[Rfam]
RNA sequence: GUGCCAUGAUGCUAAGUGUCAACACAUCAUUCUGAAAAAGAUUUGUGUGGAGACCUUCUGUAACUGAGCACU
Number, nucleotide and partner (000 for none) at each position: 001g071002u070003g069004c068005c000006a000007u000008g000009a000010u000011g000012c000013u000014a000015a000016g000017u000018g000019u000020c000021a000022a000023c000024a000025c000026a000027u000028c000029a000030u000031u000032c000033u000034g000035a000036a000037a000038a000039a000040g000041a000042u000043u000044u000045g000046u000047g000048u000049g000050g000051a000052g000053a000054c000055c000056u000057u000058c000059u000060g000061u000062a000063a000064c000065u000066g000067a000068g004069c003070a002071c001072u000
RNA: Small nucleolar RNA SNORD63
Organism: Upupa epops